This 267-nucleotide sequence from Molossus molossus belongs to the Rfam family "Mason-Pfizer monkey virus packaging signal".
The source organism's lineage runs through Eukaryota, Metazoa, Mammalia, Eutheria and Molossus.
Rfam links the family to the GO term viral genome packaging.
Rfam classes the family as a cis-regulatory element.
The match comes from Rfam's covariance-model search (128 bits).
RNA sequence: UGGCGCCCAACGUGGGGCUCGAGCACGGGGGAUCCAGUGAAGGACGCUGUUCGAGUGGCCGGCAAAAAGGAAAAGAAAAGAGGGAAUGACGUGGGAACCUGCUGCGUCUGCACCCCUCGGGUAAGUGAACGGCGAUUAUGGGUCAAGCAUUGAGCCAAGAUAAGACGUUCGUUGAAGGACUAGGAAAGGCUAUAAAGGCACGAGGAGUAAAGGUGAAAAACAAGCAUUUAUGUCAGUAUUUUGAUUAUGUUAAGGAAGUUUGUCCUU
Numbered sequence: 001u002g003g004c005g006c007c008c009a010a011c012g013u014g015g016g017g018c019u020c021g022a023g024c025a026c027g028g029g030g031g032a033u034c035c036a037g038u039g040a041a042g043g044a045c046g047c048u049g050u051u052c053g054a055g056u057g058g059c060c061g062g063c064a065a066a067a068a069g070g071a072a073a074a075g076a077a078a079a080g081a082g083g084g085a086a087u088g089a090c091g092u093g094g095g096a097a098c099c100u101g102c103u104g105c106g107u108c109u110g111c112a113c114c115c116c117u118c119g120g121g122u123a124a125g126u127g128a129a130c131g132g133c134g135a136u137u138a139u140g141g142g143u144c145a146a147g148c149a150u151u152g153a154g155c156c157a158a159g160a161u162a163a164g165a166c167g168u169u170c171g172u173u174g175a176a177g178g179a180c181u182a183g184g185a186a187a188g189g190c191u192a193u194a195a196a197g198g199c200a201c202g203a204g205g206a207g208u209a210a211a212g213g214u215g216a217a218a219a220a221c222a223a224g225c226a227u228u229u230a231u232g233u234c235a236g237u238a239u240u241u242u243g244a245u246u247a248u249g250u251u252a253a254g255g256a257a258g259u260u261u262g263u264c265c266u267u
Stems, first nucleotide, its partner, number of pairs: 006031003012026003037048001080118003083114002090106005126145003130142001133140002151194002154190003201243005207237002211229005252267005